Shown here is a 52-nucleotide sequence from Roseobacter cerasinus, a member of the family "ffh sRNA".
A search with the family's covariance model found it, with a score of 58 bits.
The family's consensus secondary structure is taken from published work.
The literature on the family includes a 2009 paper in BMC Genomics by Meyer et al., "Identification of candidate structured RNAs in the marine organism 'Candidatus Pelagibacter ubique'".
RNA sequence: GCAAUUCGGGAUCGCCCUCCGUCAGCGCGUCGCGCCCACGGGGGCGCUUUUC
Numbered sequence: 001g002c003a004a005u006u007c008g009g010g011a012u013c014g015c016c017c018u019c020c021g022u023c024a025g026c027g028c029g030u031c032g033c034g035c036c037c038a039c040g041g042g043g044g045c046g047c048u049u050u051u052c
Base pairs, nucleotide, nucleotide: 016044017043018042019041020040021039022038025035026034027033028032